The family of this 61-nucleotide RNA sequence from Deltacoronavirus marecae is "Coronavirus 3' UTR pseudoknot". The base pairs follow the family's consensus structure, which is taken from published work. The literature on the family includes a 1999 paper in J Virol by Williams et al., "A phylogenetically conserved hairpin-type 3' untranslated region pseudoknot functions in coronavirus RNA replication".
RNA sequence: CUGGGCUUGCAGCUAACCACUCCAUCAUUAUUAACACUGCAAGAAGGUUAAUAAUGACUCU
Number, nucleotide and partner (000 for none) at each position: 001c000002u000003g000004g000005g000006c000007u042008u041009g040010c039011a038012g037013c000014u000015a000016a000017c000018c000019a000020c000021u000022c000023c000024a000025u000026c056027a055028u000029u053030a052031u051032u050033a049034a048035c047036a000037c012038u011039g010040c009041a008042a007043g000044a000045a000046g000047g035048u034049u033050a032051a031052u030053a029054a000055u027056g026057a000058c000059u000060c000061u000

Clan: Coronavirus 3' UTR. Coronaviruses are plus-strand RNA viruses with ~30kb genomes. The 3' UTR region of coronavirus genomes contains a conserved ~55nt pseudoknot structure which has been shown to be necessary for viral genome replication. The mechanism of cis-regulation is unclear, but this element is postulated to function in the plus-strand. Gene Ontology term of the family: viral genome replication.